[Rfam]
RNA sequence: AGCCUCUUUAUGAUGCUGCCUUGUGGAAUCUGGAUCAAGCAGCAUUGUACAGGGCUAUGA
Numbered sequence: 001a002g003c004c005u006c007u008u009u010a011u012g013a014u015g016c017u018g019c020c021u022u023g024u025g026g027a028a029u030c031u032g033g034a035u036c037a038a039g040c041a042g043c044a045u046u047g048u049a050c051a052g053g054g055c056u057a058u059g060a
Stems, first nucleotide, its partner, number of pairs: 004054004009049010020039004

The family of this 60-nucleotide RNA from Salmo salar is "mir-103/107 microRNA precursor family". A reference for the family is Ambros (2001), "microRNAs: tiny regulators with great potential", Cell. Its family is annotated with RISC complex and miRNA-mediated post-transcriptional gene silencing in the Gene Ontology. Rfam's curators write: This family consists of the mammalian microRNA (miRNA) precursors mir-103 and mir107. Animal miRNAs are transcribed as ~70nt precursors and subsequently processed by the Dicer enzyme to give a ~22nt product. In this case the mature sequence comes from the 3' arm of the precursor. The extents of the hairpin precursors are not generally known and are estimated based on hairpin prediction. The products are thought to have regulatory roles through complementarity to mRNA. The involvement of Dicer in miRNA processing suggests a relationship with the phenomenon of RNA interference. miRNAs are numbered based on the sequence of the mature RNA. The organism belongs to Salmo, within Eukaryota.